Description:
The record is a 155-nucleotide RNA from Caldanaerobius fijiensis, which matches "glmS glucosamine-6-phosphate activated ribozyme aptamer" in Rfam.

RNA sequence: GUAUUAUAAAAAGCGCCUGGACCUGAUAUAGAUAUCAGGUUGACGAGGACAGGGUUUAUCGAGCAUUCGGCGGGUGCCCUGCGGUUUGACCACGGCCGUUAGAGACCUGACAAAACCGCAAGUAAUUGCGGCCUAAACCAGGUCGAGUGGUGAUA
Number, nucleotide and partner (000 for none) at each position: 001g000002u000003a000004u000005u000006a000007u000008a000009a000010a000011a000012a000013g000014c000015g000016c000017c000018u000019g000020g041021a040022c039023c038024u037025g036026a035027u034028a000029u000030a000031g000032a000033u000034a027035u026036c025037a024038g023039g022040u021041u020042g000043a000044c000045g000046a000047g000048g000049a000050c081051a080052g079053g078054g077055u000056u000057u000058a000059u070060c069061g068062a067063g000064c000065a000066u000067u062068c061069g060070g059071c000072g000073g000074g000075u000076g000077c054078c053079c052080u051081g050082c098083g097084g096085u095086u094087u000088g000089a000090c000091c000092a000093c000094g086095g085096c084097c083098g082099u000100u000101a000102g000103a000104g144105a143106c142107c141108u140109g139110a000111c000112a000113a000114a000115a000116c131117c130118g129119c128120a127121a126122g000123u000124a000125a000126u121127u120128g119129c118130g117131g116132c000133c000134u000135a000136a000137a000138c000139c109140a108141g107142g106143u105144c104145g000146a000147g000148u000149g000150g000151u000152g000153a000154u000155a000
It is annotated as a riboswitch. The base pairs follow the family's consensus structure, which is taken from published work.